[Rfam]
RNA sequence: AGCCACGGACGACCGUGGUGCAGAUGACUAGCGGCGGGACGGCCCGC
Numbered sequence: 001a002g003c004c005a006c007g008g009a010c011g012a013c014c015g016u017g018g019u020g021c022a023g024a025u026g027a028c029u030a031g032c033g034g035c036g037g038g039a040c041g042g043c044c045c046g047c
Base pairs, nucleotide, nucleotide: 002019003018004017005016006015007014008013034047035046036045037044038043
Rfam assigns this 47-nucleotide RNA sequence from Metapseudomonas resinovorans to the family "Guanidine-II riboswitch aptamer (mini-ykkC)". Taxonomically the source falls in Metapseudomonas resinovorans (Bacteria, Pseudomonadota, Pseudomonadaceae, Metapseudomonas). The match comes from Rfam's covariance-model search (42 bits).